This 81-nucleotide RNA sequence from Sparus aurata belongs to the Rfam family "Small nucleolar RNA snR60/Z15/Z230/Z193/J17". NCBI's taxonomy places the organism under Eukaryota, Bilateria, Craniata, Eurypterygia, Sparus.
Nucleotides: 081
Base pairs, nucleotide, nucleotide: 004078005077006076007075008074
Number, partner (000 for none) and nucleotide at each position: 001000c002000u003000g004078a005077u006076a007075c008074a009000a010000u011000g012000a013000u014000g015000a016000g017000u018000g019000c020000a021000u022000a023000g024000u025000u026000c027000a028000g029000c030000a031000g032000a033000u034000u035000a036000a037000a038000c039000c040000g041000u042000g043000a044000a045000g046000a047000u048000u049000a050000u051000g052000c053000u054000u055000g056000u057000c058000u059000u060000u061000c062000g063000c064000u065000c066000c067000u068000a069000u070000c071000u072000g073000a074008u075007g076006u077005g078004u079000u080000g081000g
Annotation
The family is grouped with related families in Rfam's "SNORD77 clan". Gene Ontology terms of the family: RNA processing and nucleolus. The family's RNA type in Rfam is C/D-box small nucleolar RNA.